[Rfam]
RNA: mir-BHRF1-1 microRNA precursor family
RNA sequence: UAUUAACCUGAUCAGCCCCGGGGUUGCCUGUCUUAGCACUAACUCCGGGCCUGAAGAGGUUGACAA
Numbered sequence: 001u002a003u004u005a006a007c008c009u010g011a012u013c014a015g016c017c018c019c020g021g022g023g024u025u026g027c028c029u030g031u032c033u034u035a036g037c038a039c040u041a042a043c044u045c046c047g048g049g050c051c052u053g054a055a056g057a058g059g060u061u062g063a064c065a066a
Stems, first nucleotide, its partner, number of pairs: 003063007012054004017049010029038003